[Rfam]
RNA sequence: AUUUCACAUAGAGGUUGCGAUUGACAGGAGUCGCUUAUCUGAAUUGUUGUAGCAAUUGGGAGGGUAAGUCAAAGGGGAAAUCGCCGAAAUGAACUAACACUACAAAGUUAGUUUGUUGGGCUAAUGGUUAAGAACUAUUAGACUGUCGUUAGAAAUAACGGUGAGCUAUGGAAACU
Numbered sequence: 001a002u003u004u005c006a007c008a009u010a011g012a013g014g015u016u017g018c019g020a021u022u023g024a025c026a027g028g029a030g031u032c033g034c035u036u037a038u039c040u041g042a043a044u045u046g047u048u049g050u051a052g053c054a055a056u057u058g059g060g061a062g063g064g065u066a067a068g069u070c071a072a073a074g075g076g077g078a079a080a081u082c083g084c085c086g087a088a089a090u091g092a093a094c095u096a097a098c099a100c101u102a103c104a105a106a107g108u109u110a111g112u113u114u115g116u117u118g119g120g121c122u123a124a125u126g127g128u129u130a131a132g133a134a135c136u137a138u139u140a141g142a143c144u145g146u147c148g149u150u151a152g153a154a155a156u157a158a159c160g161g162u163g164a165g166c167u168a169u170g171g172a173a174a175c176u
Stems, first nucleotide, its partner, number of pairs: 007170005017084006025076001033069008088117011118144002121141008146161006

A member of the RNA family "Lysine riboswitch aptamer" from Leuconostoc lactis, 176 nucleotides long. The base pairs follow the family's consensus structure, which is taken from published work.